[Rfam]
RNA sequence: CACUUGUUAAUAAGAUGUUUCUUAUUAAAAAUGUCUGAACAUAGGAACUCUGUAGUGGUUUCAGUGGAUGAUUAAGAUGAGCU
Number, nucleotide and partner (000 for none) at each position: 001c000002a000003c081004u080005u079006g078007u077008u076009a000010a000011u000012a000013a000014g000015a000016u000017g000018u000019u000020u000021c000022u000023u000024a000025u000026u000027a000028a000029a000030a000031a000032u000033g000034u000035c000036u000037g000038a000039a000040c000041a000042u000043a000044g000045g000046a000047a000048c000049u000050c000051u000052g000053u000054a000055g000056u000057g000058g000059u000060u000061u000062c000063a000064g000065u000066g000067g000068a000069u000070g000071a000072u000073u000074a000075a000076g008077a007078u006079g005080a004081g003082c000083u000
Small nucleolar RNA SNORD72: an 83-nucleotide RNA sequence from Ibidorhyncha struthersii. Rfam's curators write: snoRNA HBII-240 belongs to the CD family of snoRNAs. It is the human orthologue of the mouse MBII-240 and is predicted to guide 2'O-ribose methylation of the large 28S rRNA at residue U4590. Lineage of the source: Eukaryota > Deuterostomia > Archosauria > Coelurosauria > Ibidorhyncha. The pairing is the family consensus, mapped onto this sequence. For this family Rfam cites "RNomics: an experimental approach that identifies 201 candidates for novel, small, non-messenger RNAs in mouse" (Huttenhofer et al., EMBO J, 2001). It is annotated as a C/D-box small nucleolar RNA.